[Rfam]
Record summary: A member of the RNA family "ALIL pseudoknot", 117 nucleotides long. Its family is annotated with positive regulation of translational frameshifting in the Gene Ontology. A search with the family's covariance model found it, with a score of 86 bits. The base pairs follow the family's consensus structure, which is taken from published work.
RNA sequence: GGCCUAUUUUGCGCAGGCGGAGCUCGACCGCCGACCAAAAUAAUGGUGGCAUUUGUUGAUAGCAACAAAGCAGAAUACGGGGUCGAGCCAAUCUGCAAUGAAAUCUGGAUUGUCCCG
Numbered sequence: 001g002g003c004c005u006a007u008u009u010u011g012c013g014c015a016g017g018c019g020g021a022g023c024u025c026g027a028c029c030g031c032c033g034a035c036c037a038a039a040a041u042a043a044u045g046g047u048g049g050c051a052u053u054u055g056u057u058g059a060u061a062g063c064a065a066c067a068a069a070g071c072a073g074a075a076u077a078c079g080g081g082g083u084c085g086a087g088c089c090a091a092u093c094u095g096c097a098a099u100g101a102a103a104u105c106u107g108g109a110u111u112g113u114c115c116c117g
Stems, first nucleotide, its partner, number of pairs: 016032005078117005089112002092109004097104001